Notes: MIR396 microRNA precursor family: a 138-nucleotide RNA from Rhododendron williamsianum. On this family, see Jones-Rhoades and Bartel, Mol Cell 2004: "Computational identification of plant microRNAs and their targets, including a stress-induced miRNA". The match comes from Rfam's covariance-model search (89 bits). The organism belongs to Rhododendron, within Eukaryota. Pairs were carried over by alignment from the consensus structure, which was predicted with WAR.

RNA sequence: UGUCAUGCUUUUCCACAGCUUUCUUGAACUUCUUGCAUCUUAAUUAAUCAAUGUCUCAUUAUAUAUAUAUAUGGCAUAUACAAUCGUAUGUAAAUCAUAUGCAUAGAAGUUCAAGAAAUCUGUGGGAAAACAUGGCAA
Numbered sequence: 001u002g003u004c005a006u007g008c009u010u011u012u013c014c015a016c017a018g019c020u021u022u023c024u025u026g027a028a029c030u031u032c033u034u035g036c037a038u039c040u041u042a043a044u045u046a047a048u049c050a051a052u053g054u055c056u057c058a059u060u061a062u063a064u065a066u067a068u069a070u071a072u073g074g075c076a077u078a079u080a081c082a083a084u085c086g087u088a089u090g091u092a093a094a095u096c097a098u099a100u101g102c103a104u105a106g107a108a109g110u111u112c113a114a115g116a117a118a119u120c121u122g123u124g125g126g127a128a129a130a131c132a133u134g135g136c137a138a
Base pairs, nucleotide, nucleotide: 003135004134005133006132007131013125014124015123017121018120020118021117022116024114025113026112027111029109030108031107032106033105